[Rfam]
RNA sequence: UUAAGAAAAAUGCCAAAACUCUGGAAGAACUAAACAUAAUUCCAAAGUGCGGGGGAGCUUUAUGACGUAGCUGCGUCUUGGGGUGAAUCGCAUUGACGAGGGGAUGUAUCCUCAUCCCAAACCCGACAACUAACCUCGCAGGCUUAUUAAAAGGAGGA
Numbered sequence: 001u002u003a004a005g006a007a008a009a010a011u012g013c014c015a016a017a018a019c020u021c022u023g024g025a026a027g028a029a030c031u032a033a034a035c036a037u038a039a040u041u042c043c044a045a046a047g048u049g050c051g052g053g054g055g056a057g058c059u060u061u062a063u064g065a066c067g068u069a070g071c072u073g074c075g076u077c078u079u080g081g082g083g084u085g086a087a088u089c090g091c092a093u094u095g096a097c098g099a100g101g102g103g104a105u106g107u108a109u110c111c112u113c114a115u116c117c118c119a120a121a122c123c124c125g126a127c128a129a130c131u132a133a134c135c136u137c138g139c140a141g142g143c144u145u146a147u148u149a150a151a152a153g154g155a156g157g158a
Stems, first nucleotide, its partner, number of pairs: 012143003018048003049139006059080001081124003089098002101118004

Rfam assigns this 158-nucleotide sequence from Paenibacillus sp. yr247 to the family "c-di-AMP riboswitch aptamer (ydaO/yuaA leader)". NCBI's taxonomy places the organism under Bacteria, Bacillati, Bacillota, Paenibacillaceae, Paenibacillus. For this family Rfam cites "New RNA motifs suggest an expanded scope for riboswitches in bacterial genetic control" (Barrick et al., Proc Natl Acad Sci U S A, 2004). The match comes from Rfam's covariance-model search (68 bits). The base pairs follow the family's consensus structure.